RNA sequence: GGAUGUGAGGGCGAUCUGGCGGCGACAUCUGUCACCCCAUUGAUCGCUAGGGUUGAUUCGGCUGAUCUGGCUGGCUAGGCGGGUGUCCCCUUCCUCCCUCACCGCUCCAAGUGCGUCCCUCCCGAAGCUCCGCGCUCGGUCGAAGAGGAUGGCCAUCCCCGGUAGAUGAAGCACCGAUCUUCGGUCAAGGGUAUACGAGUAGCUGCGCUCCCCUGCUAGAACCUCCAAACAAGAUCCAAAGUCUAUGGGACUCGAACAUGAAAAAUCAAAAGUGCUAAUUUUAAAGGCUAAUAUACAAGUUAUUGUCAUAAAAA
Numbered sequence: 001g002g003a004u005g006u007g008a009g010g011g012c013g014a015u016c017u018g019g020c021g022g023c024g025a026c027a028u029c030u031g032u033c034a035c036c037c038c039a040u041u042g043a044u045c046g047c048u049a050g051g052g053u054u055g056a057u058u059c060g061g062c063u064g065a066u067c068u069g070g071c072u073g074g075c076u077a078g079g080c081g082g083g084u085g086u087c088c089c090c091u092u093c094c095u096c097c098c099u100c101a102c103c104g105c106u107c108c109a110a111g112u113g114c115g116u117c118c119c120u121c122c123c124g125a126a127g128c129u130c131c132g133c134g135c136u137c138g139g140u141c142g143a144a145g146a147g148g149a150u151g152g153c154c155a156u157c158c159c160c161g162g163u164a165g166a167u168g169a170a171g172c173a174c175c176g177a178u179c180u181u182c183g184g185u186c187a188a189g190g191g192u193a194u195a196c197g198a199g200u201a202g203c204u205g206c207g208c209u210c211c212c213c214u215g216c217u218a219g220a221a222c223c224u225c226c227a228a229a230c231a232a233g234a235u236c237c238a239a240a241g242u243c244u245a246u247g248g249g250a251c252u253c254g255a256a257c258a259u260g261a262a263a264a265a266u267c268a269a270a271a272g273u274g275c276u277a278a279u280u281u282u283a284a285a286g287g288c289u290a291a292u293a294u295a296c297a298a299g300u301u302a303u304u305g306u307c308a309u310a311a312a313a314a
Base pairs, nucleotide, nucleotide: 001108002107003106005102006101007100008099009098010097011096013093014092018090019089024087025086026085027084028083029082030081031080032079033078035074036073037070038069039068042067043066044065045064046062047061048060117171118168120166121165122139123138124137125136127135128134140162141161142160147158148157149156202257204255209250211248212247280314281313282312284309286307287306288305289302290301291300292299
RNA: 7SK RNA
Organism: Aquarana catesbeiana